[Rfam]
RNA: Small nucleolar RNA SNORA38
Organism: Myotis brandtii
RNA sequence: CCCUCCUACAAAGGCAUGUCUGUCGUUUCCCCUGUCUUUGGACGUAAUUGGAGGCAAAGAAAUGUGGACUUGGAGAAGUUUGGAGGCUCAAGAUUUCCUGCAGGCUCAAGAUCAACCAUCCCACAUAG
Number, nucleotide and partner (000 for none) at each position: 001c000002c054003c053004u052005c051006c050007u000008a000009c000010a000011a000012a000013g000014g000015c000016a045017u044018g043019u042020c041021u040022g000023u000024c000025g031026u000027u000028u000029c000030c000031c025032c000033u000034g000035u000036c000037u000038u000039u000040g021041g020042a019043c018044g017045u016046a000047a000048u000049u000050g006051g005052a004053g003054g002055c000056a000057a000058a000059g000060a000061a000062a000063u000064g000065u000066g121067g120068a119069c000070u118071u000072g000073g000074a000075g000076a000077a000078g000079u000080u000081u000082g000083g000084a000085g000086g000087c000088u000089c000090a000091a106092g105093a000094u103095u102096u000097c000098c000099u000100g000101c000102a095103g094104g000105c092106u091107c000108a000109a000110g000111a000112u000113c000114a000115a000116c000117c000118a070119u068120c067121c066122c000123a000124c000125a000126u000127a000128g000